Shown here is a 148-nucleotide RNA sequence from Filobacillus milosensis, a member of the family "FMN riboswitch aptamer (RFN element)". Taxonomically the source falls in Filobacillus (Bacteria, Bacilli, Caryophanales, Bacillaceae). The RFN element is a highly conserved domain that is found frequently in the 5'-untranslated regions of prokaryotic mRNAs that encode for flavin mononucleotide (FMN) biosynthesis and transport proteins. This element is a metabolite-dependent riboswitch that directly binds FMN in the absence of proteins. In Bacillus subtilis, the riboswitch most likely controls gene expression by causing premature transcription termination within the 5' untranslated region of the ribDEAHT operon and precluding access to the ribosome-binding site of ypaA mRNA.The FMN riboswitch structure, reported in present an FMN-bound six-stem junction, adopts a butterfly-like scaffold, stapled together by opposingly directed but nearly identically folded peripheral domains. It scores 112 bits against the family's covariance model.
[Rfam]
RNA sequence: AAAAUCCUUCGGGGCAGGGUGAAAAUCCCGACCGGCGGUGAUGAAUAGGAAUCUAUUCUUAGUCCGUGACCCGUGAGGCAAUUGCCGAGCGGUGGAUCCAGUGUGACUCUGGAGCCGACAGUUAAAGUCUGGAUGGGAGAAGGAUCAG
Numbered sequence: 001a002a003a004a005u006c007c008u009u010c011g012g013g014g015c016a017g018g019g020u021g022a023a024a025a026u027c028c029c030g031a032c033c034g035g036c037g038g039u040g041a042u043g044a045a046u047a048g049g050a051a052u053c054u055a056u057u058c059u060u061a062g063u064c065c066g067u068g069a070c071c072c073g074u075g076a077g078g079c080a081a082u083u084g085c086c087g088a089g090c091g092g093u094g095g096a097u098c099c100a101g102u103g104u105g106a107c108u109c110u111g112g113a114g115c116c117g118a119c120a121g122u123u124a125a126a127g128u129c130u131g132g133a134u135g136g137g138a139g140a141a142g143g144a145u146c147a148g
Stems, first nucleotide, its partner, number of pairs: 004145007017029003031128002033117002035067004062115002071092002097113005119131003